A member of the RNA family "UnaL2 LINE 3' element" from Oncorhynchus kisutch, 54 nucleotides long. Rfam's curators write: The eel long interspersed element (LINE) UnaL2 and its partner short interspersed element (SINE) share a conserved 3' tail containing a stem-loop that is critical for their retrotransposition. It scores 62 bits against the family's covariance model.
RNA sequence: UGCACUCACUAAUGUAAGUCUCUCUGGAUAAGAGCAUCUGCUAAAUGACUAACA
Numbered sequence: 001u002g003c004a005c006u007c008a009c010u011a012a013u014g015u016a017a018g019u020c021u022c023u024c025u026g027g028a029u030a031a032g033a034g035c036a037u038c039u040g041c042u043a044a045a046u047g048a049c050u051a052a053c054a
Base pairs, nucleotide, nucleotide: 013043014041015040016039022034023033024032025031